[Rfam]
RNA: Group II catalytic intron D1-D4-3
Nucleotides: 171
Stems, first nucleotide, its partner, number of pairs: 001016006028171001030169002036163001040158003044154002046151005062146005067140001073137003077133007085113004091106004
Number, partner (000 for none) and nucleotide at each position: 001016u002015c003014c004013a005012u006011c007000g008000u009000g010000a011006g012005g013004u014003g015002g016001a017000a018000u019000c020000u021000g022000a023000a024000g025000g026000a027000a028171g029000c030169u031168g032000g033000a034000g035000g036163c037000a038000a039000a040158u041157g042156c043000a044154c045153g046151a047150g048149c049148c050147a051000a052000g053000g054000u055000a056000c057000a058000c059000g060000a061000a062146c063145u064144c065143a066142a067140u068000u069000u070000g071000a072000g073137g074136c075135a076000g077133g078132g079131g080130u081129a082128g083127u084000c085113g086112g087111a088110u089000g090000a091106g092105u093104c094103a095000c096000c097000g098000g099000a100000a101000c102000a103094u104093g105092a106091u107000g108000a109000a110088a111087u112086c113085c114000a115000g116000a117000g118000c119000c120000g121000c122000c123000a124000a125000a126000g127083g128082c129081u130080a131079u132078c133077u134000u135075u136074g137073u138000a139000a140067a141000c142066u143065u144064g145063a146062g147050u148049g149048g150047u151046u152000g153045c154044g155000g156042g157041c158040a159000g160000a161000c162000a163036g164000a165000u166000g167000a168031c169030g170000u171028u